Shown here is a 94-nucleotide sequence from Peptoniphilus lacrimalis, a member of the family "THF (Tetrahydrofolate) riboswitch aptamer". Rfam's curators write: Tetrahydrofolate (THF) riboswitch was first reported for Ames et al. as an RNA motif in 5' untranslated (5'-UTR)regions of folate transport and biosynthesis genes in Firmicutes genomes. Its family is annotated with tetrahydrofolate metabolic process in the Gene Ontology. The literature on the family includes a 2014 paper in Chem Biol by Trausch and Batey, "A disconnect between high-affinity binding and efficient regulation by antifolates and purines in the tetrahydrofolate riboswitch". The organism belongs to Peptoniphilus lacrimalis, within Bacteria. The match comes from Rfam's covariance-model search (69 bits).
RNA sequence: AACAGAGUAGGUAAAGAGCGUCAAGUGCUAAGAGAUGGGUAGUUGCUCUUAGACGAAAAGCAGAGUCUUAUGAUUCUUUAUUGCGACCGCUGUU
Numbered sequence: 001a002a003c004a005g006a007g008u009a010g011g012u013a014a015a016g017a018g019c020g021u022c023a024a025g026u027g028c029u030a031a032g033a034g035a036u037g038g039g040u041a042g043u044u045g046c047u048c049u050u051a052g053a054c055g056a057a058a059a060g061c062a063g064a065g066u067c068u069u070a071u072g073a074u075u076c077u078u079u080a081u082u083g084c085g086a087c088c089g090c091u092g093u094u
Base pairs, nucleotide, nucleotide: 001094002093003092004091005090010082011081012080013079014078015077016076017075018074019072020071021070025054026053028052029051030050031049032048033047034046038088039087040086042084058069059068060067